RNA sequence: CCUGUUUAAGGGCAAACCCGGCGAAAGCCGGGGGCGCAAAGCUACGGGCCUAAGGGUGGUAAGAAGCCUAUGGUCGCCGGGCUGCCGGG
Numbered sequence: 001c002c003u004g005u006u007u008a009a010g011g012g013c014a015a016a017c018c019c020g021g022c023g024a025a026a027g028c029c030g031g032g033g034g035c036g037c038a039a040a041g042c043u044a045c046g047g048g049c050c051u052a053a054g055g056g057u058g059g060u061a062a063g064a065a066g067c068c069u070a071u072g073g074u075c076g077c078c079g080g081g082c083u084g085c086c087g088g089g
Stems, first nucleotide, its partner, number of pairs: 012037002017032006040083004045079003048074003055068003
This 89-nucleotide sequence from Thermanaeromonas toyohensis belongs to the Rfam family "c-di-GMP-I riboswitch aptamer".
NCBI's taxonomy places the organism under Bacteria, Bacillati, Bacillota, Clostridia, Thermanaeromonas toyohensis.
GEMM was predicted in a large-scale screen for bacterial structured RNA regulatory elements.
A search with the family's covariance model found it, with a score of 79 bits.